[Rfam]
RNA sequence: UGUUGCUGAUCUGGGUAGAGUAGCACCUGGUUUGGUGGUGCUUGUCUCAUAUCAGCCAGGGACAAGUAACUCCUUCUUUAUCCCAGCUUGGCUUUUGGUCUGUGCCCAUGCCUAGUUCGUGCCCAUGCCUGC
Number, nucleotide and partner (000 for none) at each position: 001u064002g063003u062004u061005g000006c059007u058008g057009a000010u000011c055012u054013g053014g052015g000016u000017a000018g048019a047020g046021u000022a042023g041024c040025a039026c038027c037028u000029g000030g000031u000032u000033u000034g000035g000036u000037g027038g026039u025040g024041c023042u022043u000044g000045u000046c020047u019048c018049a000050u000051a000052u014053c013054a012055g011056c000057c008058a007059g006060g000061g004062a003063c002064a001065a000066g000067u000068a000069a000070c000071u000072c000073c000074u000075u131076c000077u000078u127079u000080a000081u000082c000083c000084c000085a000086g000087c000088u000089u000090g123091g122092c121093u000094u000095u000096u119097g118098g117099u000100c115101u114102g113103u000104g111105c110106c000107c000108a000109u000110g105111c104112c000113u102114a101115g100116u000117u098118c097119g096120u000121g092122c091123c090124c000125a000126u000127g078128c000129c000130u000131g075132c000
A member of the RNA family "Small nucleolar RNA SNORA48" from Molossus molossus, 132 nucleotides long. A reference for the family is Ofengand and Bakin (1997), "Mapping to nucleotide resolution of pseudouridine residues in large subunit ribosomal RNAs from representative eukaryotes, prokaryotes, archaebacteria, mitochondria and chloroplasts", J Mol Biol. The match comes from Rfam's covariance-model search (111 bits). The snoRNA ACA 48 has been identified to guide pseudouridylation of the residue U3797 in the 28S rRNA subunit. Its family is annotated with RNA processing and nucleolus in the Gene Ontology. Taxonomically the source falls in Molossus (Eukaryota, Opisthokonta, Sarcopterygii, Mammalia).